About this RNA
mir-1233 microRNA precursor family: an 82-nucleotide sequence from Pan troglodytes. A search with the family's covariance model found it, with a score of 90 bits. NCBI's taxonomy places the organism under Eukaryota, Amniota, Mammalia, Simiiformes, Pan.

RNA sequence: GUGAGCGGGAGGCCAGGGCACGGCAGGGGGAGCUGCAGGGCUAUUGGAGGGGCCUCAGCGUCAGAGUCCUGUCCUCCCAUAG
Numbered sequence: 001g002u003g004a005g006c007g008g009g010a011g012g013c014c015a016g017g018g019c020a021c022g023g024c025a026g027g028g029g030g031a032g033c034u035g036c037a038g039g040g041c042u043a044u045u046g047g048a049g050g051g052g053c054c055u056c057a058g059c060g061u062c063a064g065a066g067u068c069c070u071g072u073c074c075u076c077c078c079a080u081a082g
Stems, first nucleotide, its partner, number of pairs: 005080001007078006014071006029062002032059004038055005
Dot-bracket structure: ....(.((((((.((((((.........((.((((..(((((........))))))))).))...)))))).)))))).)..